The family of this 222-nucleotide RNA sequence is "sucA-II RNA". It scores 173 bits against the family's covariance model.

RNA sequence: CUGCGCCGGCGGAGCGAUUCGCCGGCGCAGUAAAGCCAGAGCCCCAGCUCACAAAGCCAGGGUUCUUAUUUUGAAAGAAAAAUGACGACCAGCAGGGGCAUCCGGGCUGGUACCCGGACUAUCUGCGGGAUCCGUAGUGGCUUACCAGGUCGCUGCUUCAGGACUUCGAAUGGCCCAGCUACGGCUUCUACGCCGGUGGUGUCCCCUUACCGAGGGUGACCA
Numbered sequence: 001c002u003g004c005g006c007c008g009g010c011g012g013a014g015c016g017a018u019u020c021g022c023c024g025g026c027g028c029a030g031u032a033a034a035g036c037c038a039g040a041g042c043c044c045c046a047g048c049u050c051a052c053a054a055a056g057c058c059a060g061g062g063u064u065c066u067u068a069u070u071u072u073g074a075a076a077g078a079a080a081a082a083u084g085a086c087g088a089c090c091a092g093c094a095g096g097g098g099c100a101u102c103c104g105g106g107c108u109g110g111u112a113c114c115c116g117g118a119c120u121a122u123c124u125g126c127g128g129g130a131u132c133c134g135u136a137g138u139g140g141c142u143u144a145c146c147a148g149g150u151c152g153c154u155g156c157u158u159c160a161g162g163a164c165u166u167c168g169a170a171u172g173g174c175c176c177a178g179c180u181a182c183g184g185c186u187u188c189u190a191c192g193c194c195g196g197u198g199g200u201g202u203c204c205c206c207u208u209a210c211c212g213a214g215g216g217u218g219a220c221c222a
Base pairs, nucleotide, nucleotide: 001030002029003028004027005026006025007024008023009022010021011020012019013018039065040064041063042062043061044060047057048056049055094207095206096205097204098203099201100200101118102117103116104115105114106113119199120198121197122196123195125193126192127191129188130187132184133183136180137179138178139175140174141172143170145168148165149164150163151162